[Rfam]
RNA: Small nucleolar RNA snoR27
RNA sequence: UCUGGAUCCAUGGUGUUGUAUAAAACUACGUUAUCUAUCUGCAAUUCUAUAAAUGGAUUGAAGAUGACAAUAAGAUUUUGAGAUCCAGG
Numbered sequence: 001u002c003u004g005g006a007u008c009c010a011u012g013g014u015g016u017u018g019u020a021u022a023a024a025a026c027u028a029c030g031u032u033a034u035c036u037a038u039c040u041g042c043a044a045u046u047c048u049a050u051a052a053a054u055g056g057a058u059u060g061a062a063g064a065u066g067a068c069a070a071u072a073a074g075a076u077u078u079u080g081a082g083a084u085c086c087a088g089g
Base pairs, nucleotide, nucleotide: 001089002088003087004086005085006084007083